The record is a 359-nucleotide part of an RNA from Methanocorpusculum labreanum, which matches "Archaeal small subunit ribosomal RNA" in Rfam.
Rfam 15.1 lists 709 matches to the family in 491 species.
On this family, see Yusupov et al., Science 2001: "Crystal structure of the ribosome at 5.5 A resolution".
The organism belongs to Methanocorpusculum labreanum, within Archaea.
Pairs were carried over by alignment from the consensus structure, which is taken from published work.

RNA sequence: GGUUUAAAGCGUCCGUAGCUUGACUGUUAGGUCUCUUGGGAAAUCUUCGCGCUCAACGUGAAGGCGUCUAAGAGAUACCGGCAGUCUUGGAACUGGGAGAGGUAAACCGUACUUCGGGGGUAGGAGUGAAAUCUUGUAAUCCUCGAGGGACGACCUAUGGCGAAGGCAGUUUACCAGAACAGCUUCGACAGUGAGGGACGAAAGCUGGGGGAGCAAACGGGAUUAGAUACCCCGGUAGUCCCAGCCGUAAACAAUGUGCGUUAGGUGUGUCGGUAACCACGUGUUACUGAUGCGCCGAAGAGAAAUCGUGAAACGCACCACCUGGGAAGUACGGUCGCAAGGCUGAAACUUAAAGGAAU
Numbered sequence: 001g002g003u004u005u006a007a008a009g010c011g012u013c014c015g016u017a018g019c020u021u022g023a024c025u026g027u028u029a030g031g032u033c034u035c036u037u038g039g040g041a042a043a044u045c046u047u048c049g050c051g052c053u054c055a056a057c058g059u060g061a062a063g064g065c066g067u068c069u070a071a072g073a074g075a076u077a078c079c080g081g082c083a084g085u086c087u088u089g090g091a092a093c094u095g096g097g098a099g100a101g102g103u104a105a106a107c108c109g110u111a112c113u114u115c116g117g118g119g120g121u122a123g124g125a126g127u128g129a130a131a132u133c134u135u136g137u138a139a140u141c142c143u144c145g146a147g148g149g150a151c152g153a154c155c156u157a158u159g160g161c162g163a164a165g166g167c168a169g170u171u172u173a174c175c176a177g178a179a180c181a182g183c184u185u186c187g188a189c190a191g192u193g194a195g196g197g198a199c200g201a202a203a204g205c206u207g208g209g210g211g212a213g214c215a216a217a218c219g220g221g222a223u224u225a226g227a228u229a230c231c232c233c234g235g236u237a238g239u240c241c242c243a244g245c246c247g248u249a250a251a252c253a254a255u256g257u258g259c260g261u262u263a264g265g266u267g268u269g270u271c272g273g274u275a276a277c278c279a280c281g282u283g284u285u286a287c288u289g290a291u292g293c294g295c296c297g298a299a300g301a302g303a304a305a306u307c308g309u310g311a312a313a314c315g316c317a318c319c320a321c322c323u324g325g326g327a328a329g330u331a332c333g334g335u336c337g338c339a340a341g342g343c344u345g346a347a348a349c350u351u352a353a354a355g356g357a358a359u
Stems, first nucleotide, its partner, number of pairs: 001322003009319001011199004016193001018192003022086007030079002032075009045063007090186003093182003101175007108152002112148008123134003160167002204245006213239002218234004256318006264296014300307002324351003333344004